[Rfam]
RNA: Small nucleolar RNA MBII-202
Organism: Jacana jacana
RNA sequence: GAUGAGAAAUCUCCGGAAUCGCUGUACGACAUUGAUGAUUCCCUUGAACCCUUUUACCUCUGAUGACUGCGGCUCCCCUGU
Numbered sequence: 001g002a003u004g005a006g007a008a009a010u011c012u013c014c015g016g017a018a019u020c021g022c023u024g025u026a027c028g029a030c031a032u033u034g035a036u037g038a039u040u041c042c043c044u045u046g047a048a049c050c051c052u053u054u055u056a057c058c059u060c061u062g063a064u065g066a067c068u069g070c071g072g073c074u075c076c077c078c079u080g081u
Stems, first nucleotide, its partner, number of pairs: 002081003006077001